[Rfam]
RNA sequence: GCUCUUUCACAAACCGCGAAGGGCGCCUAUAUCAGCCUCGUCAGCUUGCUGACUAUGGCGAUAAACGGUGCGUGGAAUAAGCGUUGUGGACCCGGGGGCGGUACCCGGCGCCUCCAUAUUCUCUUGCGGCCCUUCGGGGCCGCCGCGGCCUGAUUCAGACUUCGCGGCGUUCGCCGCUACGUCAUCAGGACGCGAUCACGGGGGGAUUUGCGGGGGCGAAAUAGACUCGACACGCGUGGUAAAGACCCAUCUUUUGCCCGGCAUUGUACCGCCGUUAUCGGGCUAAUUUUUAAAUGCGAACGAUAACAACGUUGCAUUCGCUGCAGCUGCCUAAUCAGUAGCUAAAGCGCGGCUCGGGGGGCGCCGGGCAACAGAAGCCCCCCACU
Numbered sequence: 001g002c003u004c005u006u007u008c009a010c011a012a013a014c015c016g017c018g019a020a021g022g023g024c025g026c027c028u029a030u031a032u033c034a035g036c037c038u039c040g041u042c043a044g045c046u047u048g049c050u051g052a053c054u055a056u057g058g059c060g061a062u063a064a065a066c067g068g069u070g071c072g073u074g075g076a077a078u079a080a081g082c083g084u085u086g087u088g089g090a091c092c093c094g095g096g097g098g099c100g101g102u103a104c105c106c107g108g109c110g111c112c113u114c115c116a117u118a119u120u121c122u123c124u125u126g127c128g129g130c131c132c133u134u135c136g137g138g139g140c141c142g143c144c145g146c147g148g149c150c151u152g153a154u155u156c157a158g159a160c161u162u163c164g165c166g167g168c169g170u171u172c173g174c175c176g177c178u179a180c181g182u183c184a185u186c187a188g189g190a191c192g193c194g195a196u197c198a199c200g201g202g203g204g205g206a207u208u209u210g211c212g213g214g215g216g217c218g219a220a221a222u223a224g225a226c227u228c229g230a231c232a233c234g235c236g237u238g239g240u241a242a243a244g245a246c247c248c249a250u251c252u253u254u255u256g257c258c259c260g261g262c263a264u265u266g267u268a269c270c271g272c273c274g275u276u277a278u279c280g281g282g283c284u285a286a287u288u289u290u291u292a293a294a295u296g297c298g299a300a301c302g303a304u305a306a307c308a309a310c311g312u313u314g315c316a317u318u319c320g321c322u323g324c325a326g327c328u329g330c331c332u333a334a335u336c337a338g339u340a341g342c343u344a345a346a347g348c349g350c351g352g353c354u355c356g357g358g359g360g361g362c363g364c365c366g367g368g369c370a371a372c373a374g375a376a377g378c379c380c381c382c383c384a385c386u
Base pairs, nucleotide, nucleotide: 040053041052042051043050044049057258058257059256060255061254067251068250069249070248072246073245082236083235084234086233087232088231092108093107094106095105096104109218110217111216112215113214114213115212259274260273261272262271264285266283269281270280350366351365352364353363356383357382358381359380360379361378

Source information
Alphaproteobacteria transfer-messenger RNA: a 386-nucleotide RNA sequence from Acidocella sp. MX-AZ02. About the family: Bacterial tmRNA, also known as 10Sa RNA or SsrA, is named for its dual tRNA and mRNA-like properties. Its role is to liberate the mRNA from a stalled ribosome. To accomplish this part of the tmRNA is used as a reading frame that ends in a translation stop signal. The family's consensus secondary structure is taken from published work. For this family Rfam cites "The tmRNA Website: invasion by an intron" (Williams, Nucleic Acids Res, 2002). The organism belongs to Acidocella, within Bacteria.